[Rfam]
RNA sequence: CACUCAUCAAGACCGGUCGAGGGAUAGGCCCUUUGACGCCGGGGCAACCUUCGCGAAGAGACCCUCUUCGCGAGAUGGUGCCAACUCCUGCGAGGAUCACGGUCUCACGACCCGGUCCGCGAGAGAUGAGUG
Number, nucleotide and partner (000 for none) at each position: 001c132002a131003c130004u129005c128006a127007u126008c125009a000010a000011g000012a000013c042014c041015g040016g039017u038018c000019g000020a000021g031022g030023g029024a000025u090026a089027g088028g087029c023030c022031c021032u000033u000034u000035g000036a000037c000038g017039c016040c015041g014042g013043g082044g081045c080046a079047a000048c078049c077050u074051u073052c072053g071054c070055g069056a068057a067058g066059a000060g000061a000062c000063c000064c000065u000066c058067u057068u056069c055070g054071c053072g052073a051074g050075a000076u000077g049078g048079u046080g045081c044082c043083a000084a000085c000086u124087c028088c027089u026090g025091c121092g120093a000094g118095g117096a116097u115098c114099a000100c000101g000102g000103u000104c000105u000106c000107a000108c000109g000110a000111c000112c000113c000114g098115g097116u096117c095118c094119g000120c092121g091122a000123g000124a086125g008126a007127u006128g005129a004130g003131u002132g001

Notes:
A member of the RNA family "SAM riboswitch aptamer (S box leader)" from Brevundimonas halotolerans, 132 nucleotides long. The match comes from Rfam's covariance-model search (81 bits). The source organism's lineage runs through Bacteria, Pseudomonadati, Alphaproteobacteria, Caulobacterales and Brevundimonas.